A member of the RNA family "Small nucleolar RNA Z278" from Tripterygium wilfordii, 120 nucleotides long.

RNA sequence: GGCAAUGAUGAUCCAAUCCGCAUUGUUUGAGUUGUAGUGGAGCCAAGACCCUGCUUUUGUAGGGAGAACCUACUUGGUGUAAGCUACAAUUCACUGAUAUUAAUUGGAUUUAACUGAGUC
Numbered sequence: 001g002g003c004a005a006u007g008a009u010g011a012u013c014c015a016a017u018c019c020g021c022a023u024u025g026u027u028u029g030a031g032u033u034g035u036a037g038u039g040g041a042g043c044c045a046a047g048a049c050c051c052u053g054c055u056u057u058u059g060u061a062g063g064g065a066g067a068a069c070c071u072a073c074u075u076g077g078u079g080u081a082a083g084c085u086a087c088a089a090u091u092c093a094c095u096g097a098u099a100u101u102a103a104u105u106g107g108a109u110u111u112a113a114c115u116g117a118g119u120c
Stems, first nucleotide, its partner, number of pairs: 001120003049064005

The literature on the family includes a 2003 paper in Nucleic Acids Res by Chen et al., "The high diversity of snoRNAs in plants: identification and comparative study of 120 snoRNA genes from Oryza sativa". Rfam links the family to the GO terms RNA processing and nucleolus. It scores 38 bits against the family's covariance model. Pairs were carried over by alignment from the consensus structure, which was predicted with PFOLD.